[Rfam]
RNA sequence: GGGGAAAUAGCUUAGUGGUUUAUAGCGCUGGUCUGUCAAGCCAGAAGUCGCGGGUUCAAAUCCCGUUUUUCCCG
Numbered sequence: 001g002g003g004g005a006a007a008u009a010g011c012u013u014a015g016u017g018g019u020u021u022a023u024a025g026c027g028c029u030g031g032u033c034u035g036u037c038a039a040g041c042c043a044g045a046a047g048u049c050g051c052g053g054g055u056u057c058a059a060a061u062c063c064c065g066u067u068u069u070u071c072c073c074g
Base pairs, nucleotide, nucleotide: 001073002072003071004070005069006068007067010026011025012024028044029043030042031041032040050066051065052064053063054062
A member of the RNA family "tRNA", 74 nucleotides long.
The sequence is in the family's curated seed alignment.
By type it is a transfer RNA.